RNA sequence: CCCAGCGUUGAAACGCUGGGCUAUUCUCGGGUGUCCCUACGGGACG
Numbered sequence: 001c002c003c004a005g006c007g008u009u010g011a012a013a014c015g016c017u018g019g020g021c022u023a024u025u026c027u028c029g030g031g032u033g034u035c036c037c038u039a040c041g042g043g044a045c046g
Stems, first nucleotide, its partner, number of pairs: 001020008033045005
This 46-nucleotide sequence belongs to the Rfam family "Acido-Lenti-1 RNA".